[Rfam]
RNA sequence: GCGAUGAGCUAUAUUGAAUAAGUCAAUAAACAUUUAAUGUGCUAUGUGGAGCGCAGUUUAUUGCCUCAAUACGUAAAGAGGACGUCCAAUAGGACGUCCUC
Numbered sequence: 001g002c003g004a005u006g007a008g009c010u011a012u013a014u015u016g017a018a019u020a021a022g023u024c025a026a027u028a029a030a031c032a033u034u035u036a037a038u039g040u041g042c043u044a045u046g047u048g049g050a051g052c053g054c055a056g057u058u059u060a061u062u063g064c065c066u067c068a069a070u071a072c073g074u075a076a077a078g079a080g081g082a083c084g085u086c087c088a089a090u091a092g093g094a095c096g097u098c099c100u101c
Stems, first nucleotide, its partner, number of pairs: 014069004024063008038055002041052003078101009
Dot-bracket structure: .............((((......((((((((......((.(((......))).))))))))))..))))........(((((((((......)))))))))